[Rfam]
RNA: 7SK RNA
RNA sequence: GCGUAUGUGGGCGAUCUGGCUGCGACAUCUGUCACCCCAUUGAUCGCCAGGGUUGAUUUGGCUGAUCUGGCUGGCUAGGCAGGUGUCCCCUUCCUCCCUCACCUCUCCAUGUGCGUCCCUCCCGAAGCUGCACGCUCAGUCGAAGAGGACGACCUUCCCUGAAUAGAGGAGGUCUUCGGUCAAGGGUAUAGGAGUAGCUGCGCUCCCCUGCUAGAACCUCCAAACAAGCUCUCAAGAUGGGUUGUAGGCAAGCCUGAAGGGCAUUUUCUUAAUCACUGAUUGAUGGGGGAGGACCCAGCUCAGGUGGGGAGUGCCAUCCCUGGGCU
Numbered sequence: 001g002c003g004u005a006u007g008u009g010g011g012c013g014a015u016c017u018g019g020c021u022g023c024g025a026c027a028u029c030u031g032u033c034a035c036c037c038c039a040u041u042g043a044u045c046g047c048c049a050g051g052g053u054u055g056a057u058u059u060g061g062c063u064g065a066u067c068u069g070g071c072u073g074g075c076u077a078g079g080c081a082g083g084u085g086u087c088c089c090c091u092u093c094c095u096c097c098c099u100c101a102c103c104u105c106u107c108c109a110u111g112u113g114c115g116u117c118c119c120u121c122c123c124g125a126a127g128c129u130g131c132a133c134g135c136u137c138a139g140u141c142g143a144a145g146a147g148g149a150c151g152a153c154c155u156u157c158c159c160u161g162a163a164u165a166g167a168g169g170a171g172g173u174c175u176u177c178g179g180u181c182a183a184g185g186g187u188a189u190a191g192g193a194g195u196a197g198c199u200g201c202g203c204u205c206c207c208c209u210g211c212u213a214g215a216a217c218c219u220c221c222a223a224a225c226a227a228g229c230u231c232u233c234a235a236g237a238u239g240g241g242u243u244g245u246a247g248g249c250a251a252g253c254c255u256g257a258a259g260g261g262c263a264u265u266u267u268c269u270u271a272a273u274c275a276c277u278g279a280u281u282g283a284u285g286g287g288g289g290a291g292g293a294c295c296c297a298g299c300u301c302a303g304g305u306g307g308g309g310a311g312u313g314c315c316a317u318c319c320c321u322g323g324g325c326u
Stems, first nucleotide, its partner, number of pairs: 001108001003106001006101002009098003013093002018090002024087010035074002037070003042067004046062003116172002118169004122139001124137002127135002140162003147158003197274001199272001204263001206261004211256001218252002220248002224245004297326003301323001303320001304318001307315002